[Rfam]
RNA sequence: CAUACAUGACAGGGGUGCAAUUGCUGAGAAAAACCCUUAUUACCUGAUCUGGUUAAUACUAGCGUAGGGAGUCAUAUCGAUUGAUAG
Numbered sequence: 001c002a003u004a005c006a007u008g009a010c011a012g013g014g015g016u017g018c019a020a021u022u023g024c025u026g027a028g029a030a031a032a033a034c035c036c037u038u039a040u041u042a043c044c045u046g047a048u049c050u051g052g053u054u055a056a057u058a059c060u061a062g063c064g065u066a067g068g069g070a071g072u073c074a075u076a077u078c079g080a081u082u083g084a085u086a087g
Stems, first nucleotide, its partner, number of pairs: 006075005011037004016031001017024002043068004049062004
A member of the RNA family "TPP riboswitch aptamer (THI element)" from Eubacterium sp. AF22-8LB, 87 nucleotides long. It scores 70 bits against the family's covariance model. Its family is annotated with thiamine pyrophosphate binding in the Gene Ontology. About the family: Vitamin B(1) in its active form thiamin pyrophosphate (TPP) is an essential coenzyme that is synthesised by coupling of pyrimidine and thiazole moieties in bacteria. The previously detected thiamin-regulatory element, thi box was extended, resulting in a new, highly conserved RNA secondary structure, the THI element, which is widely distributed in eubacteria and also occurs in some archaea. Analysis of operon structures identified a large number of new candidate thiamin-regulated genes, mostly transporters, in various prokaryotic organisms. The THI element is a riboswitch that directly binds to TPP to regulate gene expression through a variety of mechanisms in archaea, bacteria and eukaryotes. through a variety of mechanisms in archaea, bacteria and eukaryotes. Tandem TPP riboswitches have been reported where both TPP riboswitches respond independently to TPP. The structure of TPP riboswitch has been reported for Escherichia coli and Arabidopsis thaliana. Lineage of the source: Bacteria > Bacillati > Clostridia > Eubacteriaceae > Eubacterium.